[Rfam]
Nucleotides: 067
Stems, first nucleotide, its partner, number of pairs: 004063002007060005014054001016051004021046004026041001028040001
Number, partner (000 for none) and nucleotide at each position: 001000g002000a003000g004063a005062c006000c007060a008059u009058c010057u011056c012000a013000a014054a015000c016051a017050g018049a019048g020000a021046c022045a023044c024043u025000g026041a027000u028040g029000g030000u031000u032000u033000u034000g035000a036000u037000u038000u039000c040028c041026u042000a043024a044023g045022u046021g047000c048019u049018u050017c051016u052000c053000u054014u055000u056011g057010g058009g059008g060007u061000u062005g063004u064000c065000u066000c067000a

The record is a 67-nucleotide RNA sequence from Oryzias latipes, which matches "miR-430 microRNA precursor family" in Rfam.
Pairs were carried over by alignment from the consensus structure, which was predicted with RNAalifold.
Taxonomically the source falls in Oryzias (Eukaryota, Euteleostomi, Clupeocephala, Acanthomorphata).
Its family is annotated with miRNA-mediated post-transcriptional gene silencing and RISC complex in the Gene Ontology.
On this family, see Giraldez et al., Science 2005: "MicroRNAs regulate brain morphogenesis in zebrafish".
The family has 32 seed sequences and 24,817 matches in Rfam 15.1.
Its Rfam clan is "mir-290 clan".